[Rfam]
RNA sequence: UGCCAUUGCUAAGUCAGGACUUCUUCCUGCGCAAUUUAUUGCCGUUUGCUCCAUGGAAGUUUUGUCUGUUACAGCUUUGGCAGAUCAAUUCUUGCCCACCGCCCAUCCUCAUUCUGAGGUUUGGGUUGACAAACUUUCGUUCUGAAAGCUUUGUCGCAUAGGGCUAAGUUGUGUUUUGUUUAAGAGUUGAGUUCUGCUUACUGCCGCAUGGUGGUCCCGUAGCAGAGCUCAUAGUAACAUCUCACACAUUC
Numbered sequence: 001u002g003c004c005a006u007u008g009c010u011a012a013g014u015c016a017g018g019a020c021u022u023c024u025u026c027c028u029g030c031g032c033a034a035u036u037u038a039u040u041g042c043c044g045u046u047u048g049c050u051c052c053a054u055g056g057a058a059g060u061u062u063u064g065u066c067u068g069u070u071a072c073a074g075c076u077u078u079g080g081c082a083g084a085u086c087a088a089u090u091c092u093u094g095c096c097c098a099c100c101g102c103c104c105a106u107c108c109u110c111a112u113u114c115u116g117a118g119g120u121u122u123g124g125g126u127u128g129a130c131a132a133a134c135u136u137u138c139g140u141u142c143u144g145a146a147a148g149c150u151u152u153g154u155c156g157c158a159u160a161g162g163g164c165u166a167a168g169u170u171g172u173g174u175u176u177u178g179u180u181u182a183a184g185a186g187u188u189g190a191g192u193u194c195u196g197c198u199u200a201c202u203g204c205c206g207c208a209u210g211g212u213g214g215u216c217c218c219g220u221a222g223c224a225g226a227g228c229u230c231a232u233a234g235u236a237a238c239a240u241c242u243c244a245c246a247c248a249u250u251c
Stems, first nucleotide, its partner, number of pairs: 003080003017067004023059005029043001031042003091168002094164004103125001104123001105121001107119004128155004134148006171245003177239003188231005195224004201214005
RNA: Small nucleolar RNA snR191